[Rfam]
RNA sequence: ACGAUAUUCCGCUGAUAGAAGAAAUCUAUGCAUGAAUGUUUG
Dot-bracket structure: ..(((((((...((((((.......)))).)).)))))))..
The record is a 42-nucleotide sequence from Jeotgalibaca sp. PTS2502, which matches "Ribosomal protein L19 leader" in Rfam.
About the family: This family is a putative r-protein leader autoregulatory structure found in B. subtilis and other low-GC Gram-positive bacteria. It is located in the 5' untranslated regions of mRNAs encoding ribosomal protein L19 (rplS).
A search with the family's covariance model found it, with a score of 40 bits.
NCBI's taxonomy places the organism under Bacteria, Bacillati, Bacilli, Carnobacteriaceae, Jeotgalibaca.